Shown here is a 168-nucleotide sequence from Firmicutes bacterium CAG:646, a member of the family "Clostridiales-1 RNA". Rfam 15.1 lists 1,172 matches to the family in 137 species. A search with the family's covariance model found it, with a score of 117 bits. Taxonomically the source falls in Bacillota (Bacteria, Bacillati). The family's consensus secondary structure is taken from published work. It is annotated as a small RNA.
[Rfam]
RNA sequence: AGAUACCAGGGUCAUAAAGACAUAAACCACGUUGUGCUUGCACAUAAGUGGUUUUAUGCUUUCAUGACCCGCCCCAAUAUGAGAAUGGAAGCAGGGCAAAGCCCUGCGAUAUUCGAAUUGGGGCAGAAUUGUGCAAGUGCGCAGCACGAAACAAUUCGUCCGGUAUCU
Number, nucleotide and partner (000 for none) at each position: 001a168002g167003a166004u165005a164006c163007c162008a000009g000010g069011g068012u067013c066014a000015u000016a062017a061018a060019g059020a000021c000022a000023u000024a054025a053026a052027c051028c050029a049030c048031g000032u000033u044034g043035u042036g041037c000038u000039u000040g000041c036042a035043c034044a033045u000046a000047a000048g030049u029050g028051g027052u026053u025054u024055u000056a000057u000058g000059c019060u018061u017062u016063c000064a000065u000066g013067a012068c011069c010070c000071g000072c000073c123074c122075c121076a000077a119078u000079a118080u117081g000082a000083g114084a113085a112086u111087g000088g000089a000090a000091g107092c106093a105094g104095g103096g102097c101098a000099a000100a000101g097102c096103c095104c094105u093106g092107c091108g000109a000110u000111a086112u085113u084114c083115g000116a000117a080118u079119u077120g000121g075122g074123g073124c000125a000126g157127a156128a155129u154130u153131g152132u151133g000134c000135a000136a000137g147138u146139g145140c144141g000142c000143a000144g140145c139146a138147c137148g000149a000150a000151a132152c131153a130154a129155u128156u127157c126158g000159u000160c000161c000162g007163g006164u005165a004166u003167c002168u001